[Rfam]
A member of the RNA family "Glycine riboswitch aptamer" from Nocardioides sp. AX2bis, 117 nucleotides long. Clan: Glycine riboswitch clan. Taxonomically the source falls in Nocardioides (Bacteria, Bacillati, Actinomycetota, Nocardioidaceae).
RNA sequence: CGAUCCCGCACGGGAGAGUCUUGCCGCCGCACGCCCGGGAGACCGGGUCGCGGUGGGAAGCGCCGAAGGGGCAAAUCCUCCCCGGAACCUCUCAGGCGCCCGGACCGUGCGGACCAG
Numbered sequence: 001c002g003a004u005c006c007c008g009c010a011c012g013g014g015a016g017a018g019u020c021u022u023g024c025c026g027c028c029g030c031a032c033g034c035c036c037g038g039g040a041g042a043c044c045g046g047g048u049c050g051c052g053g054u055g056g057g058a059a060g061c062g063c064c065g066a067a068g069g070g071g072c073a074a075a076u077c078c079u080c081c082c083c084g085g086a087a088c089c090u091c092u093c094a095g096g097c098g099c100c101c102g103g104a105c106c107g108u109g110c111g112g113a114c115c116a117g
Stems, first nucleotide, its partner, number of pairs: 006112008020060003062097003065093002069091003076084001